[Rfam]
RNA sequence: CGUGACACUUUGAAAUUGUGCCACAUCAUUACUUGAAAAUUAAAAAUUUUAUAUAAAUUUUCAGGUGAUGACGUGGUACAAUAUUAAAGGUGUAAC
Numbered sequence: 001c002g003u004g005a006c007a008c009u010u011u012g013a014a015a016u017u018g019u020g021c022c023a024c025a026u027c028a029u030u031a032c033u034u035g036a037a038a039a040u041u042a043a044a045a046a047u048u049u050u051a052u053a054u055a056a057a058u059u060u061u062c063a064g065g066u067g068a069u070g071a072c073g074u075g076g077u078a079c080a081a082u083a084u085u086a087a088a089g090g091u092g093u094a095a096c
Base pairs, nucleotide, nucleotide: 003095005093006092007091008090009088012085013084015082016081017080018079019078020077021076022075023074024073026071027070028069029068030067031066032065033064034063035062036061037060038059039058040057041056
RNA: MIR8675 microRNA precursor family
Organism: Gossypium mustelinum